The record is a 72-nucleotide RNA sequence from Drosophila grimshawi, which matches "mir-287 microRNA precursor family" in Rfam.
RNA sequence: UGCAUAAUGCUUGAAAUUUUGCACACAUUUACAAUAUUUGUAAAUGUGUUGAAAAUCGUUUGCACAACUGUG
Number, nucleotide and partner (000 for none) at each position: 001u000002g000003c000004a000005u000006a000007a000008u064009g063010c062011u000012u000013g000014a061015a060016a056017u055018u054019u053020u052021g000022c000023a049024c048025a047026c046027a045028u044029u043030u042031a041032c040033a039034a038035u000036a000037u000038u034039u033040g032041u031042a030043a029044a028045u027046g026047u025048g024049u023050u000051g000052a020053a019054a018055a017056u016057c000058g000059u000060u015061u014062g010063c009064a008065c000066a000067a000068c000069u000070g000071u000072g000